[Rfam]
RNA sequence: GGCCCAAAACUGAGGUAGAGUAGAUUAGUGAGGUCAGCUGAUCCUCCUAUUCUACUGUACUUCAAAAUUGGGUCA
Number, nucleotide and partner (000 for none) at each position: 001g074002g073003c072004c071005c070006a069007a068008a000009a000010c000011u064012g063013a062014g061015g060016u059017a058018g000019a056020g055021u054022a053023g052024a000025u000026u049027a048028g047029u000030g045031a000032g043033g042034u041035c040036a000037g000038c000039u000040g035041a034042u033043c032044c000045u030046c000047c028048u027049a026050u000051u000052c023053u022054a021055c020056u019057g000058u017059a016060c015061u014062u013063c012064a011065a000066a000067a000068u007069u006070g005071g004072g003073u002074c001075a000
RNA: mir-5928 microRNA precursor family